[Rfam]
Overview
Rfam assigns this 424-nucleotide part of an RNA from Strongyloides ratti to the family "Eukaryotic large subunit ribosomal RNA". The family's consensus secondary structure is taken from published work.
RNA sequence: UUUGCCUCAAUUAUGUAUGAGUACCCGCUGAACUUAAGCAUAUCGUUAAGCGGAGGAAAAGAAACUAAAUAGGAUUUCCGUAGUAACUGCGAGUGAACUGGAAUUAGCCCAUCACGAAAUCUAUAUUACAUUCGUAAUAUCGAAAUGUCGUGUAUAGGUUUUAUUAUUAUUGAUAUAAUAUUAUUAAAUAAUUGUAUUUAAAUAUACAGCCACAGAAGGUGCCAGCCCUGUUGUUUAAUAAUAUUUAUCAAAUUUAUAAAACUUUAGAGUCGUGUUGCUUGGAAGUGCAGCGCAAAGUUGGUGAUAAACAUCAUCUAAGGCUAAAUAUUCCUAUGAAUCCGAUAGCGAACAAGUACUGUGAAGGAAAAUUGCAAAGUACUCCGGAGAGAGAGUUAAAGAGGACGUGAAACCGAUACGAUGGAAG
Number, nucleotide and partner (000 for none) at each position: 001u000002u000003u000004g000005c000006c000007u000008c000009a000010a000011u000012u000013a000014u000015g000016u000017a000018u000019g000020a000021g000022u000023a000024c055025c053026c052027g051028c050029u049030g000031a000032a000033c000034u000035u042036a041037a000038g000039c000040a000041u036042a035043u000044c000045g000046u000047u000048a000049a029050g028051c027052g026053g025054a000055g024056g000057a000058a000059a000060a000061g000062a000063a000064a000065c072066u071067a000068a000069a000070u000071a066072g065073g000074a000075u000076u103077u102078c101079c100080g099081u000082a000083g000084u000085a000086a094087c093088u000089g000090c000091g000092a000093g087094u086095g000096a000097a000098c000099u080100g079101g078102a077103a076104u000105u000106a322107g321108c320109c319110c000111a000112u000113c152114a151115c150116g149117a148118a000119a146120u143121c142122u000123a140124u139125a138126u137127u136128a135129c000130a000131u000132u000133c000134g000135u128136a127137a126138u125139a124140u123141c000142g121143a120144a000145a000146u119147g000148u117149c116150g115151u114152g113153u000154a000155u000156a000157g263158g262159u000160u000161u261162u260163a000164u259165u258166a257167u256168u000169a000170u000171u000172g000173a000174u000175a248176u247177a246178a245179u000180a000181u000182u240183a239184u238185u237186a236187a235188a234189u000190a000191a000192u208193u000194g207195u206196a205197u204198u000199u000200a000201a000202a000203u000204a197205u196206a195207c194208a192209g000210c000211c215212a000213c000214a000215g211216a000217a000218g228219g227220u000221g000222c000223c000224a000225g000226c000227c219228c218229u000230g000231u000232u000233g000234u188235u187236u186237a185238a184239u183240a182241a000242u000243a000244u000245u178246u177247a176248u175249c000250a000251a000252a000253u000254u000255u000256a167257u166258a165259a164260a162261a161262c158263u157264u000265u000266a000267g000268a000269g000270u000271c000272g293273u292274g291275u290276u289277g288278c287279u000280u000281g000282g000283a000284a000285g000286u000287g278288c277289a276290g275291c274292g273293c272294a000295a000296a000297g000298u000299u000300g315301g314302u313303g312304a000305u000306a000307a000308a000309c000310a000311u000312c303313a302314u301315c300316u000317a000318a000319g109320g108321c107322u106323a000324a000325a000326u000327a000328u000329u000330c000331c000332u000333a000334u000335g000336a000337a000338u000339c000340c000341g000342a000343u000344a000345g000346c000347g000348a000349a000350c000351a000352a000353g000354u000355a000356c363357u362358g000359u000360g000361a000362a357363g356364g000365a000366a000367a000368a000369u000370u000371g000372c000373a000374a000375a000376g000377u000378a000379c390380u389381c388382c000383g000384g000385a000386g000387a000388g381389a380390g379391a000392g000393u000394u000395a000396a000397a000398g000399a000400g000401g000402a000403c000404g000405u000406g000407a000408a000409a000410c000411c000412g000413a000414u000415a000416c000417g000418a000419u000420g000421g000422a000423a000424g000